Rfam assigns this 236-nucleotide RNA sequence from Musa troglodytarum to the family "RNase MRP".

RNA sequence: GCGCCAUAGGACGGAGUGAACGGGUCUGUUGACCCUGGAAAGUCCCCGGGCCUUUAAUCGCAGAGAUGCGUCCACGUCACGGUGGGGUCUCUUUGGGCUUUGGGCCUGUUUGGGCUGAGACUUGUGUGGAGCCUAUCAGGACAAAGCCCGAGAGAAUAAUCAUGGCCGUUGAUAACAGUUAUUCACUCGAUCCGUAACCGUUGGAUCAACAGAACGGGGCUUAUGAUCCUGUGGCG
Dot-bracket structure: .((((((((((..((((((..(((((....)))))....[[[.[[[[...........((((....))))(((((......)))))..(((....((((((...((((...((((...............))))..))))..)))))).)))..............................)))))).(((((.......))))).........]]]]]]]....))))))))))